t44 RNA: a 106-nucleotide RNA sequence from Pseudomaricurvus hydrocarbonicus. The organism belongs to Pseudomaricurvus, within Bacteria. It scores 67 bits against the family's covariance model.

[Rfam]
RNA sequence: AAACACUAAAAUGACUGUCACACAUAUACCGACACAUCUGUCUGGGUGCCUUAGAUUUUUGUAAUAAAAUCAACGGGUUGAUAGGUGGGGUAUAUGGAGGCUCAAC
Numbered sequence: 001a002a003a004c005a006c007u008a009a010a011a012u013g014a015c016u017g018u019c020a021c022a023c024a025u026a027u028a029c030c031g032a033c034a035c036a037u038c039u040g041u042c043u044g045g046g047u048g049c050c051u052u053a054g055a056u057u058u059u060u061g062u063a064a065u066a067a068a069a070u071c072a073a074c075g076g077g078u079u080g081a082u083a084g085g086u087g088g089g090g091u092a093u094a095u096g097g098a099g100g101c102u103c104a105a106c
Stems, first nucleotide, its partner, number of pairs: 023096008035087008048078004